This 190-nucleotide sequence from Geosporobacter ferrireducens belongs to the Rfam family "Lysine riboswitch aptamer". Its family is annotated with lysine biosynthetic process in the Gene Ontology. The literature on the family includes a 2003 paper in Cell by Mandal et al., "Riboswitches Control Fundamental Biochemical Pathways in Bacillus subtilis and Other Bacteria".

RNA sequence: UUGUGUCUUAGAGGUUGCAGUGUAUUAUCAGUACGGUAGGGGAGAGUGAGGACGUCGUAGAUCCUGCCGGAAAGGAAUCAUUGCCGAAGCAUAGAAAUCUGCCUCGAUUUCUAGAGCUGGGACUAUAUUGAACAAAUAUAGGACUGUCACUGGUAGAGACCCAUUUUACCAGUGAGGGGCUAUUUCACAC
Numbered sequence: 001u002u003g004u005g006u007c008u009u010a011g012a013g014g015u016u017g018c019a020g021u022g023u024a025u026u027a028u029c030a031g032u033a034c035g036g037u038a039g040g041g042g043a044g045a046g047u048g049a050g051g052a053c054g055u056c057g058u059a060g061a062u063c064c065u066g067c068c069g070g071a072a073a074g075g076a077a078u079c080a081u082u083g084c085c086g087a088a089g090c091a092u093a094g095a096a097a098u099c100u101g102c103c104u105c106g107a108u109u110u111c112u113a114g115a116g117c118u119g120g121g122a123c124u125a126u127a128u129u130g131a132a133c134a135a136a137u138a139u140a141g142g143a144c145u146g147u148c149a150c151u152g153g154u155a156g157a158g159a160c161c162c163a164u165u166u167u168a169c170c171a172g173u174g175a176g177g178g179g180c181u182a183u184u185u186c187a188c189a190c
Base pairs, nucleotide, nucleotide: 009182010181011180017084018083019082020081021080022079024078025077026076034069035068036067037066038065039064040063041062088118089117090116092113093112094111095110096109097108098107119145120144123141124140125139126138127137128136129135147175148174149173150172151171152170153169154168155167156166